The record is a 95-nucleotide RNA sequence from Nicotiana attenuata, which matches "MIR6152 microRNA precursor family" in Rfam.
[Rfam]
RNA sequence: UUGACAGAUUAUUGUAUUCGACUGUAUUCACAGCGUGAACAGGGUAUUACACUAUUUUUAAACGGAGAGUGAAUCAAUUAACAUAAUAGACUCCU
Number, nucleotide and partner (000 for none) at each position: 001u000002u000003g093004a092005c000006a000007g000008a000009u089010u088011a087012u086013u085014g084015u083016a000017u081018u080019c000020g079021a078022c000023u076024g075025u000026a074027u073028u072029c071030a070031c069032a000033g000034c064035g063036u062037g057038a056039a000040c000041a053042g052043g000044g000045u000046a000047u000048u000049a000050c000051a000052c042053u041054a000055u000056u038057u037058u000059u000060a000061a000062a036063c035064g034065g000066a000067g000068a000069g031070u030071g029072a028073a027074u026075c024076a023077a000078u021079u020080a018081a017082c000083a015084u014085a013086a012087u011088a010089g009090a000091c000092u004093c003094c000095u000
The family's consensus secondary structure was predicted with RNAalifold.